[Rfam]
RNA sequence: GGGGAUGAUCGGUUUCGACAUCGCCUGCGUGCCGACGGGAAGCGGGCCGAGGAUCCACGGUCAUCUCGUCAACGAUCCGUGGAAAACAACAAGUGCCAAUUCCAAGCGCACUGACUUCGCUCUCGCUGCGUAAGCAGUAGAGCCACAUGAAGUCCGUCGGCCGGGUGAUCGUUCCCUAUCCCGUGUCCGGCGUCAUCCAGGGGACUCGCUGCGUGAUUCCGUCCGGAGGUCACGCGGGACUUGCAUCCGGGCUGGGCUCGUCGUCCUAGAAGCCAGUAGCAAAGGACGGAGUCGAGCAGAACGCCUCAUCUGGCUACGCCCGUAGAAGACGUCGAAUCACAGCGAUGGACGGGGGUUCAAUUCCCCCCAUCUCCACCA
Dot-bracket structure: (((((((...........(((((.(((.....(((((.....((((([[[[[.(((((((...]]]]]........))))))).....................................(((.(((((....)))))))).............[[[[[[.[[.[.[[[.(((((((]]].].]].]]]]]]......)))))))...(((((((((...[.[[.[..)))))))))..........].]].].(((((..(((.......[[[[..........)))))))).................]]]]...))))).......))))).....))))))))...(((((.......))))))))))))....
This 378-nucleotide sequence from Curtobacterium sp. MCBD17_040 belongs to the Rfam family "transfer-messenger RNA". From the family's description: Bacterial tmRNA, also known as 10Sa RNA or SsrA, is named for its dual tRNA and mRNA-like properties. The family's RNA type in Rfam is non-coding RNA gene. The organism belongs to Curtobacterium, within Bacteria.